[Rfam]
RNA sequence: CCUGUUAUAUGACUAACAGUAACCUAGGGAUAGUGCAUUACUGGCAACGGCAAUGUGCGGAGCUUCCUGACAAUGUACCCCCUGUACAGGUUAUUAACAUUGUGAAAUGUUAAUAAGAUACUCGGAACGACCACUGGGUUGAGGGG
Numbered sequence: 001c002c003u004g005u006u007a008u009a010u011g012a013c014u015a016a017c018a019g020u021a022a023c024c025u026a027g028g029g030a031u032a033g034u035g036c037a038u039u040a041c042u043g044g045c046a047a048c049g050g051c052a053a054u055g056u057g058c059g060g061a062g063c064u065u066c067c068u069g070a071c072a073a074u075g076u077a078c079c080c081c082c083u084g085u086a087c088a089g090g091u092u093a094u095u096a097a098c099a100u101u102g103u104g105a106a107a108u109g110u111u112a113a114u115a116a117g118a119u120a121c122u123c124g125g126a127a128c129g130a131c132c133a134c135u136g137g138g139u140u141g142a143g144g145g146g
Stems, first nucleotide, its partner, number of pairs: 002019006027068004033058007041050003081090003091116004100107002120139006

Shown here is a 146-nucleotide sequence from Caviibacterium pharyngocola, a member of the family "Group II catalytic intron D1-D4-7". The match comes from Rfam's covariance-model search (97 bits). Gene Ontology term of the family: Group II intron splicing. About the family: Group II introns are found in rRNA, tRNA and mRNA of organelles in fungi, plants and protists, and also in mRNA in bacteria.